[Rfam]
RNA sequence: UGGACAAAUUAUUGUAUUCGAUUGUAUUCAACAGGGGAUUGCACUAUUUUUGAACGAAAAAUGAAUCAAUUAACAUAAUAGACUCCU
Numbered sequence: 001u002g003g004a005c006a007a008a009u010u011a012u013u014g015u016a017u018u019c020g021a022u023u024g025u026a027u028u029c030a031a032c033a034g035g036g037g038a039u040u041g042c043a044c045u046a047u048u049u050u051u052g053a054a055c056g057a058a059a060a061a062u063g064a065a066u067c068a069a070u071u072a073a074c075a076u077a078a079u080a081g082a083c084u085c086c087u
Stems, first nucleotide, its partner, number of pairs: 002086003009081007017073002020071002023068002026066005032056001033045002
Shown here is an 87-nucleotide sequence from Nicotiana sylvestris, a member of the family "MIR6152 microRNA precursor family".
It scores 62 bits against the family's covariance model.
Gene Ontology terms of the family: miRNA-mediated post-transcriptional gene silencing and RISC complex.